[Rfam]
RNA sequence: UGAGCCGGAGCGGGAGAGUCCCCGAGUAUUCGGGGCACCGAAGGAGCAACUUCCCCGCCAAUCUCUCAGGUACCAGUUACCGUUCUGGCCAG
Number, nucleotide and partner (000 for none) at each position: 001u000002g000003a000004g000005c000006c087007g086008g085009a084010g083011c082012g081013g080014g000015a000016g000017a000018g000019u000020c035021c034022c033023c032024g000025a000026g000027u000028a000029u000030u000031c000032g023033g022034g021035g020036c000037a071038c070039c069040g067041a066042a000043g000044g065045a064046g063047c000048a000049a000050c000051u057052u000053c000054c000055c000056c000057g051058c000059c000060a000061a000062u000063c046064u045065c044066u041067c040068a000069g039070g038071u037072a000073c000074c000075a000076g000077u000078u000079a000080c013081c012082g011083u010084u009085c008086u007087g006088g000089c000090c000091a000092g000

The family of this 92-nucleotide RNA from Amycolatopsis pithecellobii is "Glycine riboswitch aptamer". It scores 58 bits against the family's covariance model. The base pairs follow the family's consensus structure.